[Rfam]
RNA sequence: GGAUGUGAGGGCGAUCUGGCUGUGACAUCUGUCACCCCAUUGAUCGCCAGGGUUGAUUCGGCUGAUCUGGCUGGCUAGGCGGGUAUCCCCUUCCUCCCUCACCGCUCCACGUGCGUCCCUCCCGAAGCUGCACGCUCCGUCGAAGAGGACGACCACCCCCGAUAGAGGAGGACCGUUUUCUCAGUCAAGGGUGUACGAGUAGCUGCGCUCCCCUGCUAGAACCUCCAAACAAGCUCUCAAAAUUUGCUACAAUGUCUGUCAUAUAUCUUUGUCAUAUAACAUUUUUAUAAACGGGCUUGGGAUGUAGCUCUGU
Numbered sequence: 001g002g003a004u005g006u007g008a009g010g011g012c013g014a015u016c017u018g019g020c021u022g023u024g025a026c027a028u029c030u031g032u033c034a035c036c037c038c039a040u041u042g043a044u045c046g047c048c049a050g051g052g053u054u055g056a057u058u059c060g061g062c063u064g065a066u067c068u069g070g071c072u073g074g075c076u077a078g079g080c081g082g083g084u085a086u087c088c089c090c091u092u093c094c095u096c097c098c099u100c101a102c103c104g105c106u107c108c109a110c111g112u113g114c115g116u117c118c119c120u121c122c123c124g125a126a127g128c129u130g131c132a133c134g135c136u137c138c139g140u141c142g143a144a145g146a147g148g149a150c151g152a153c154c155a156c157c158c159c160c161g162a163u164a165g166a167g168g169a170g171g172a173c174c175g176u177u178u179u180c181u182c183a184g185u186c187a188a189g190g191g192u193g194u195a196c197g198a199g200u201a202g203c204u205g206c207g208c209u210c211c212c213c214u215g216c217u218a219g220a221a222c223c224u225c226c227a228a229a230c231a232a233g234c235u236c237u238c239a240a241a242a243u244u245u246g247c248u249a250c251a252a253u254g255u256c257u258g259u260c261a262u263a264u265a266u267c268u269u270u271g272u273c274a275u276a277u278a279a280c281a282u283u284u285u286u287a288u289a290a291a292c293g294g295g296c297u298u299g300g301g302a303u304g305u306a307g308c309u310c311u312g313u
Stems, first nucleotide, its partner, number of pairs: 001108003005102007013093002018090002024087002027084007035074002037070003042067004046062003116171002118168004122139001124137002127135002140162003147158002202308003209302001211300002215296002224290001229286001231284003
This 313-nucleotide RNA sequence from Heterocephalus glaber belongs to the Rfam family "7SK RNA". 7SK was discovered as an abundant small nuclear RNA in the mid-70s but a possible function has only recently been suggested. Two independent studies have found that 7SK RNA binds the CDK9/cyclin T complex (known as elongation factor P-TEFb). P-TEFb activates transcription by phosphorylating the C-terminal domain of RNA polymerase II. This process is negatively regulated by the 7SK RNP. The secondary structure of 7SK RNA shown here was proposed by Wasserman and Steitz on the basis of chemical modification and enzymatic cleavage experiments. This family contains a number of annotated pseudogenes and 7SK derived repeats. A search with the family's covariance model found it, with a score of 254 bits. Lineage of the source: Eukaryota > Metazoa > Deuterostomia > Euteleostomi > Heterocephalus. Pairs were carried over by alignment from the consensus structure, which is taken from published work.